[Rfam]
RNA sequence: GCUCCGCUUUAGCAGCACGUAAAUAUUGGUGUGGGAGAAUAAGGCCAAAACCCCAAUAUUACUUGUGCUGCUUCAGUGUGGC
Numbered sequence: 001g002c003u004c005c006g007c008u009u010u011a012g013c014a015g016c017a018c019g020u021a022a023a024u025a026u027u028g029g030u031g032u033g034g035g036a037g038a039a040u041a042a043g044g045c046c047a048a049a050a051c052c053c054c055a056a057u058a059u060u061a062c063u064u065g066u067g068c069u070g071c072u073u074c075a076g077u078g079u080g081g082c
Stems, first nucleotide, its partner, number of pairs: 001082003005078003010075001011072008022060008